[Rfam]
Rfam assigns this 341-nucleotide sequence from a Candidatus Thorarchaeota archaeon to the family "Archaeal RNase P". The match comes from Rfam's covariance-model search (146 bits). Rfam's curators write: Ribonuclease P (RNase P) is a ubiquitous endoribonuclease, found in archaea, bacteria and eukarya as well as chloroplasts and mitochondria. The family's RNA type in Rfam is ribozyme.
RNA sequence: UGGAGCAAAAGCGCAACUGACGGUACUUGUCCGUGAGGACAAGAGCUGAGGAAACUCCCGACUCGUGUCGACACCGGUCUUGUGAAAGCAAGGAGGCGAGAGUCUCGCUCUGGGAACAGAAACGACACCCCCAAAUGAGAAACGACAAUGAUACAGAACCUAAAUCUGUUGAGAACUCAGUUGGACAGGUUUAAACGACCCACCACCGGUUGAGCAAUUCCAAGAAUACACUGUUGAAGUGUCGGCCUGAGGUGUAGGGUAGGAAGCAUAGUUCGAUGUUGCAAGAUCCAAGACUGGCGACAGUCAUGGGUGGAACAGAAUUGGGGUUACUCACUGGACCA
Number, nucleotide and partner (000 for none) at each position: 001u341002g340003g339004a000005g000006c336007a335008a000009a000010a331011g330012c000013g282014c281015a280016a279017c278018u000019g000020a000021c048022g047023g046024u045025a000026c000027u000028u000029g000030u000031c000032c000033g000034u000035g000036a000037g000038g000039a000040c000041a000042a000043g000044a000045g024046c023047u022048g021049a000050g000051g000052a000053a328054a327055c326056u000057c325058c324059c323060g322061a321062c214063u213064c212065g211066u000067g247068u000069c245070g000071a000072c000073a000074c209075c208076g207077g206078u205079c092080u091081u090082g089083u088084g000085a000086a000087a000088g083089c082090a081091a080092g079093g106094a105095g104096g103097c102098g000099a000100g000101a000102g097103u096104c095105u094106c093107g204108c000109u000110c000111u000112g201113g200114g199115a000116a000117c000118a000119g000120a000121a000122a000123c000124g000125a000126c000127a000128c189129c188130c000131c184132c183133a182134a181135a000136u179137g178138a177139g000140a000141a000142a000143c000144g000145a000146c000147a000148a000149u000150g000151a000152u000153a169154c168155a167156g166157a165158a000159c000160c000161u000162a000163a000164a000165u157166c156167u155168g154169u153170u000171g000172a000173g000174a000175a000176c000177u138178c137179a136180g000181u134182u133183g132184g131185a000186c000187a000188g129189g128190u000191u000192u000193a000194a000195a000196c000197g000198a000199c114200c113201c112202a000203c000204c107205a078206c077207c076208g075209g074210u000211u065212g064213a063214g062215c000216a000217a000218u265219u264220c263221c262222a000223a000224g000225a000226a000227u256228a255229c254230a253231c252232u000233g000234u000235u000236g000237a000238a000239g000240u000241g000242u000243c000244g000245g069246c000247c067248u000249g000250a000251g000252g231253u230254g229255u228256a227257g000258g000259g000260u000261a000262g221263g220264a219265a218266g000267c000268a000269u000270a000271g000272u000273u000274c000275g000276a000277u000278g017279u016280u015281g014282c013283a000284a000285g000286a000287u000288c000289c000290a000291a000292g000293a000294c000295u000296g000297g000298c000299g000300a000301c000302a000303g000304u000305c000306a000307u000308g000309g000310g000311u000312g000313g000314a000315a000316c000317a000318g000319a000320a000321u061322u060323g059324g058325g057326g055327u054328u053329a000330c011331u010332c000333a000334c000335u007336g006337g000338a000339c003340c002341a001